RAGATH-5 RNA: a 54-nucleotide RNA sequence. The sequence is in the family's curated seed alignment.
RNA sequence: CCGGAAGCCCUGGCAGGGUGCGCACCGGAUAAAGCGGCCCUACCUCACCGGCAC
Numbered sequence: 001c002c003g004g005a006a007g008c009c010c011u012g013g014c015a016g017g018g019u020g021c022g023c024a025c026c027g028g029a030u031a032a033a034g035c036g037g038c039c040c041u042a043c044c045u046c047a048c049c050g051g052c053a054c
Base pairs, nucleotide, nucleotide: 001028002027003026004025013043015041016040017039018038021036022035023034
On this family, see Weinberg et al., Nat Chem Biol 2015: "New classes of self-cleaving ribozymes revealed by comparative genomics analysis". The family's consensus secondary structure is taken from published work. Rfam links the family to the GO term catalytic activity.